The family of this 143-nucleotide RNA sequence from Desulfobacter latus is "Group II catalytic intron D1-D4-7". For this family Rfam cites "The ins and outs of group II introns" (Bonen and Vogel, Trends Genet, 2001). The base pairs follow the family's consensus structure. The organism belongs to Desulfobacter, within Bacteria. About the family: Group II introns are found in rRNA, tRNA and mRNA of organelles in fungi, plants and protists, and also in mRNA in bacteria.
RNA sequence: CUCGGUGUAUCCCCACCGACCACCCUAGGUGAGCGUGCUACCGUUGCGCAGAUGACGGGGUGCGAAGCCUCACUGACAAUGUACCGAAUCGGGUUUGAAUGGUGACAGGAGAACCCUUCCGGAAAUCCCAUCUGGUUAAGGGA
Numbered sequence: 001c002u003c004g005g006u007g008u009a010u011c012c013c014c015a016c017c018g019a020c021c022a023c024c025c026u027a028g029g030u031g032a033g034c035g036u037g038c039u040a041c042c043g044u045u046g047c048g049c050a051g052a053u054g055a056c057g058g059g060g061u062g063c064g065a066a067g068c069c070u071c072a073c074u075g076a077c078a079a080u081g082u083a084c085c086g087a088a089u090c091g092g093g094u095u096u097g098a099a100u101g102g103u104g105a106c107a108g109g110a111g112a113a114c115c116c117u118u119c120c121g122g123a124a125a126u127c128c129c130a131u132c133u134g135g136u137u138a139a140g141g142g143a
Stems, first nucleotide, its partner, number of pairs: 002019006029073005034064006041058006091116004100107002119135005